[Rfam]
RNA sequence: UGGCAUGGUUUCCUGCAGAGCGAGCUCAGCCUGCUCUACCAAGCCUAGAGUAGAAGGGCCUGGCAUCCUUUCCUAAAAUUAAGCAAGGAGCCUUACCCAGGUUGUCCUAGUCUCAUAUUU
Numbered sequence: 001u002g003g004c005a006u007g008g009u010u011u012c013c014u015g016c017a018g019a020g021c022g023a024g025c026u027c028a029g030c031c032u033g034c035u036c037u038a039c040c041a042a043g044c045c046u047a048g049a050g051u052a053g054a055a056g057g058g059c060c061u062g063g064c065a066u067c068c069u070u071u072c073c074u075a076a077a078a079u080u081a082a083g084c085a086a087g088g089a090g091c092c093u094u095a096c097c098c099a100g101g102u103u104g105u106c107c108u109a110g111u112c113u114c115a116u117a118u119u120u
Stems, first nucleotide, its partner, number of pairs: 002045003006041002015039001017037006024030001056113004062107002067101003076094002
RNA: Small Cajal body specific RNA 21
Organism: Callithrix jacchus